[Rfam]
RNA sequence: CAAAAGUGAAGUUCAGAUAUCACAAUAAAAAACGAGGCGCAACCUGAAAAGCCUUAUGAGUAAGGAACAAA
Numbered sequence: 001c002a003a004a005a006g007u008g009a010a011g012u013u014c015a016g017a018u019a020u021c022a023c024a025a026u027a028a029a030a031a032a033c034g035a036g037g038c039g040c041a042a043c044c045u046g047a048a049a050a051g052c053c054u055u056a057u058g059a060g061u062a063a064g065g066a067a068c069a070a071a
Stems, first nucleotide, its partner, number of pairs: 006023004036053003043065002
This 71-nucleotide sequence from Flavobacterium sp. 9AF belongs to the Rfam family "DUF805 RNA". Its Rfam clan is "DUF805 clan". By type it is a cis-regulatory element. The base pairs follow the family's consensus structure, which is taken from published work.